[Rfam]
RNA sequence: GGUGGUUCUCAGGUGACAUAACCCCUGAAUCGGGCUCCCUCCUCUCUAGUUCCAGGUGCAUCACCCGAGAACUGUA
Numbered sequence: 001g002g003u004g005g006u007u008c009u010c011a012g013g014u015g016a017c018a019u020a021a022c023c024c025c026u027g028a029a030u031c032g033g034g035c036u037c038c039c040u041c042c043u044c045u046c047u048a049g050u051u052c053c054a055g056g057u058g059c060a061u062c063a064c065c066c067g068a069g070a071a072c073u074g075u076a
Stems, first nucleotide, its partner, number of pairs: 002075002005072006012065005019058002023056002027052004032047003
RNA: mir-9223 microRNA precursor family